RNA sequence: GCCGAGCCUAGUCACGUGGGCUUGUAAUCCGAGUGGAGGCAAUAAGGGUGAUUGGACGUUGAACCGGGCCGGUUGGCUGGACCUUUGAUUGCGUAAUCUGGACCGCCCAUUCCAAGUGGUGAGCUGGGUCGUGAGUUUCAAUCGAAGGGUUGAGAUUCGCGGCCUUUAGAGUGGAGGGCACCGUGUCAGGCUGGCCUCACAGAGCAGCGAUUACCUCCCGCUCUCUGCAGUGGAAGGAUUACGGUUCGGUGCAAUUUGGGCCCGAUAAAGUCAAUUGGGCUGGUUUAAUUGGACUUUCACCUUU
Number, nucleotide and partner (000 for none) at each position: 001g040002c039003c038004g023005a022006g021007c020008c019009u018010a017011g000012u000013c000014a000015c000016g000017u010018g009019g008020g007021c006022u005023u004024g000025u000026a000027a000028u037029c036030c035031g000032a000033g000034u000035g030036g029037a028038g003039g002040c001041a000042a000043u000044a304045a303046g302047g301048g300049u299050g298051a297052u000053u000054g294055g000056a000057c291058g290059u288060u287061g286062a000063a284064c283065c282066g281067g280068g000069c278070c277071g276072g275073u274074u273075g272076g271077c270078u269079g263080g262081a000082c260083c259084u258085u000086u000087g000088a000089u254090u253091g252092c251093g250094u000095a000096a000097u000098c249099u248100g247101g246102a245103c244104c243105g242106c000107c237108c236109a000110u235111u234112c233113c232114a231115a000116g228117u227118g226119g225120u000121g223122a222123g221124c220125u000126g165127g164128g163129u162130c161131g160132u159133g158134a157135g156136u155137u154138u153139c152140a151141a150142u149143c148144g000145a000146a000147g000148g143149g142150u141151u140152g139153a138154g137155a136156u135157u134158c133159g132160c131161g130162g129163c128164c127165u126166u171167u000168a000169g000170a000171g166172u000173g218174g217175a216176g215177g214178g000179c000180a000181c000182c000183g000184u209185g208186u207187c000188a000189g000190g000191c202192u201193g200194g000195c000196c000197u000198c000199a000200c193201a192202g191203a000204g000205c000206a000207g186208c185209g184210a000211u000212u000213a000214c177215c176216u175217c174218c173219c000220g124221c123222u122223c121224u000225c119226u118227g117228c116229a000230g000231u114232g113233g112234a111235a110236g108237g107238a000239u000240u000241a000242c105243g104244g103245u102246u101247c100248g099249g098250u093251g092252c091253a090254a089255u000256u000257u000258g084259g083260g082261c000262c080263c079264g000265a000266u000267a000268a000269a078270g077271u076272c075273a074274a073275u072276u071277g070278g069279g000280c067281u066282g065283g064284u063285u000286u061287a060288a059289u000290u058291g057292g000293a000294c054295u000296u000297u051298c050299a049300c048301c047302u046303u045304u044
RNA: Plant signal recognition particle RNA